[Rfam]
The family of this 115-nucleotide RNA sequence from Halothermothrix orenii is "SAM riboswitch aptamer (S box leader)". From the family's description: The SAM riboswitch is found upstream of a number of genes which code for proteins involved in methionine or cysteine biosynthesis in Gram-positive bacteria. The sequence is in the family's curated seed alignment. The source organism's lineage runs through Bacteria, Bacillati, Bacillota, Clostridia and Halothermothrix orenii.
RNA sequence: CAAUCAUCAAGAGUGGUGGAGGGACUGGCCCGAAGAAGCCCGGCAACCUACCUGAGUUUAGCAAGGUAAGGUGCCAAAUCCUGCAUUCUGGGGAAUCCGGAGUGAGAGAUGAGGG
Dot-bracket structure: (..(((((....(.(((...(((.[.[[)))......))))((((.((((((............)))).))))))...(]].]((((((((.....))))))))..))))))..)
Numbered sequence: 001c002a003a004u005c006a007u008c009a010a011g012a013g014u015g016g017u018g019g020a021g022g023g024a025c026u027g028g029c030c031c032g033a034a035g036a037a038g039c040c041c042g043g044c045a046a047c048c049u050a051c052c053u054g055a056g057u058u059u060a061g062c063a064a065g066g067u068a069a070g071g072u073g074c075c076a077a078a079u080c081c082u083g084c085a086u087u088c089u090g091g092g093g094a095a096u097c098c099g100g101a102g103u104g105a106g107a108g109a110u111g112a113g114g115g
Stems, first nucleotide, its partner, number of pairs: 001115001004112005013041001015040003021031003025083001027081002042075004047071002049068004079107001084104008